[Rfam]
RNA sequence: AAGGGAGAUGUCGAAAACCCUCAGAAAAGAGUAGGCU
Numbered sequence: 001a002a003g004g005g006a007g008a009u010g011u012c013g014a015a016a017a018c019c020c021u022c023a024g025a026a027a028a029g030a031g032u033a034g035g036c037u
Stems, first nucleotide, its partner, number of pairs: 002021004010036003
The family of this 37-nucleotide RNA sequence from Chitinophaga flava is "DUF805b RNA".
The organism belongs to Chitinophaga, within Bacteria.
The family's consensus secondary structure is taken from published work.
The family's RNA type in Rfam is cis-regulatory element.